[Rfam]
RNA sequence: GGGAACAGCACGGUCGCAACUCUGACAGUGCCACAGUCACGGGCGUGCCGCUAUCGGUCGUCCGUGCUCGUUACGUGGCUCGGGAUUGCGAAAGUGU
Numbered sequence: 001g002g003g004a005a006c007a008g009c010a011c012g013g014u015c016g017c018a019a020c021u022c023u024g025a026c027a028g029u030g031c032c033a034c035a036g037u038c039a040c041g042g043g044c045g046u047g048c049c050g051c052u053a054u055c056g057g058u059c060g061u062c063c064g065u066g067c068u069c070g071u072u073a074c075g076u077g078g079c080u081c082g083g084g085a086u087u088g089c090g091a092a093a094g095u096g097u
Stems, first nucleotide, its partner, number of pairs: 008097004014091006022084002030079005
RNA: S15-Halobacteria ribosomal protein leader